[Rfam]
RNA sequence: AUGCAGUGAUGAUUCCAUCUUGGCCUGGAUAGAUGCUGAAUUCCAGUGAAGACGCAUUUCUCUUGGCUGUCUGAGCAU
Dot-bracket structure: ((((......................................................................))))
Numbered sequence: 001a002u003g004c005a006g007u008g009a010u011g012a013u014u015c016c017a018u019c020u021u022g023g024c025c026u027g028g029a030u031a032g033a034u035g036c037u038g039a040a041u042u043c044c045a046g047u048g049a050a051g052a053c054g055c056a057u058u059u060c061u062c063u064u065g066g067c068u069g070u071c072u073g074a075g076c077a078u
Stems, first nucleotide, its partner, number of pairs: 001078004
Description: The record is a 78-nucleotide RNA from Pycnonotus jocosus, which matches "Small nucleolar RNA SNORD53/SNORD92" in Rfam. Gene Ontology terms of the family: RNA processing and nucleolus. The base pairs follow the family's consensus structure. Lineage of the source: Eukaryota > Gnathostomata > Sauria > Neognathae > Pycnonotus.